Shown here is a 53-nucleotide RNA sequence from Hucho hucho, a member of the family "U7 small nuclear RNA".
The base pairs follow the family's consensus structure, which was predicted with PFOLD.
For this family Rfam cites "3' end processing of mouse histone pre-mRNA: evidence for additional base-pairing between U7 snRNA and pre-mRNA" (Spycher et al., Nucleic Acids Res, 1994).
It scores 45 bits against the family's covariance model.
Animal histone pre-mRNAs are spliced by a different mechanism than nuclear pre-mRNAs and self-splicing introns.
RNA sequence: AAAUGUUCUCUUUUAGUAUUUCUCCAGUAGGUUUUCUCAAGGAGAAAGCCUCC
Numbered sequence: 001a002a003a004u005g006u007u008c009u010c011u012u013u014u015a016g017u018a019u020u021u022c023u024c025c026a027g028u029a030g031g032u033u034u035u036c037u038c039a040a041g042g043a044g045a046a047a048g049c050c051u052c053c
Stems, first nucleotide, its partner, number of pairs: 030050008